Source information
Shown here is a 123-nucleotide RNA from Novosphingobium sp. AAP83, a member of the family "Glycine riboswitch aptamer".
RNA sequence: UAGCGACGCUCUGGAAAGUGCUACCUCUCUUAGAGGGGGGCCGCCGAAGGGGUAACCCCAUCAAGCCCUUCUGGAGAGGAGGGUGGGGGAAAGCUCUCAGGUUUCCGUGACAGAGGGGGCGCC
Numbered sequence: 001u002a003g004c005g006a007c008g009c010u011c012u013g014g015a016a017a018g019u020g021c022u023a024c025c026u027c028u029c030u031u032a033g034a035g036g037g038g039g040g041c042c043g044c045c046g047a048a049g050g051g052g053u054a055a056c057c058c059c060a061u062c063a064a065g066c067c068c069u070u071c072u073g074g075a076g077a078g079g080a081g082g083g084u085g086g087g088g089g090a091a092a093g094c095u096c097u098c099a100g101g102u103u104u105c106c107g108u109g110a111c112a113g114a115g116g117g118g119g120c121g122c123c
Stems, first nucleotide, its partner, number of pairs: 007117001009115005020041003043102003046098002050096003056089004